The record is an 82-nucleotide sequence from Erwinia billingiae, which matches "OmrA-B family" in Rfam.
The family's RNA type in Rfam is small RNA.
On this family, see Guillier and Gottesman, Mol Microbiol 2006: "Remodelling of the Escherichia coli outer membrane by two small regulatory RNAs".
RNA sequence: CCCAGAGGUAUUGAUGGGUGAACAUCAAAAAGAUUUUUUAUGCUUUGUUUCACCGACCUGCGCAGAUGCGCAGGUUUUUUUU
Numbered sequence: 001c002c003c004a005g006a007g008g009u010a011u012u013g014a015u016g017g018g019u020g021a022a023c024a025u026c027a028a029a030a031a032g033a034u035u036u037u038u039u040a041u042g043c044u045u046u047g048u049u050u051c052a053c054c055g056a057c058c059u060g061c062g063c064a065g066a067u068g069c070g071c072a073g074g075u076u077u078u079u080u081u082u
Base pairs, nucleotide, nucleotide: 017054018053019052020051021044028039029038030037031036056075057074058073059072060071061070062069063068